[Rfam]
PyrR binding site: a 172-nucleotide sequence from Paenibacillus graminis. Its family is annotated with pyrimidine nucleobase transport and pyrimidine nucleobase biosynthetic process in the Gene Ontology. The family's consensus secondary structure is taken from published work. Lineage of the source: Bacteria > Bacilli > Caryophanales > Paenibacillaceae > Paenibacillus. The match comes from Rfam's covariance-model search (54 bits).
RNA sequence: UGCGCCUUUAAUUCAGUCCCGUGAGGCUGGCAAGGUAACGUGAAUCGAGGUUCGCGACAUUGAGAGAGGAAUCCGUAUGUCUACGGAGGUUCUUUUUAUGCGCGCGGGCACGCCAUCUUUUUGAAUCUGCGGAUUUCACUCCUUGCCUGCUUCGGGCAAGGAGUUUUUUGUU
Numbered sequence: 001u002g003c004g005c006c007u008u009u010a011a012u013u014c015a016g017u018c019c020c021g022u023g024a025g026g027c028u029g030g031c032a033a034g035g036u037a038a039c040g041u042g043a044a045u046c047g048a049g050g051u052u053c054g055c056g057a058c059a060u061u062g063a064g065a066g067a068g069g070a071a072u073c074c075g076u077a078u079g080u081c082u083a084c085g086g087a088g089g090u091u092c093u094u095u096u097u098a099u100g101c102g103c104g105c106g107g108g109c110a111c112g113c114c115a116u117c118u119u120u121u122u123g124a125a126u127c128u129g130c131g132g133a134u135u136u137c138a139c140u141c142c143u144u145g146c147c148u149g150c151u152u153c154g155g156g157c158a159a160g161g162a163g164u165u166u167u168u169u170g171u172u
Stems, first nucleotide, its partner, number of pairs: 004036005013030006064095003068091002072087006138164011